MIR4378 microRNA precursor family: a 91-nucleotide RNA sequence from Glycine max.
RNA sequence: UUAGAACUGUCUUAGAAUGUGCUACAUUCCAAGAUGAUGGUCUUCUUUCGAAAAUCACCUUAGAAUGCGACACAUUCUAAGACGGUUCUAA
Numbered sequence: 001u002u003a004g005a006a007c008u009g010u011c012u013u014a015g016a017a018u019g020u021g022c023u024a025c026a027u028u029c030c031a032a033g034a035u036g037a038u039g040g041u042c043u044u045c046u047u048u049c050g051a052a053a054a055u056c057a058c059c060u061u062a063g064a065a066u067g068c069g070a071c072a073c074a075u076u077c078u079a080a081g082a083c084g085g086u087u088c089u090a091a
Base pairs, nucleotide, nucleotide: 001091002090003089004088005087006086007085008084009083010082011081012080013079014078015077016076017075018074019073025067026066027065028064029063031061032060

Rfam links the family to the GO terms miRNA-mediated post-transcriptional gene silencing and RISC complex. The source organism's lineage runs through Eukaryota, Tracheophyta, Magnoliopsida, fabids and Glycine subgen. Soja. The sequence is in the family's curated seed alignment. Rfam 15.1 lists 4 matches to the family in 2 species.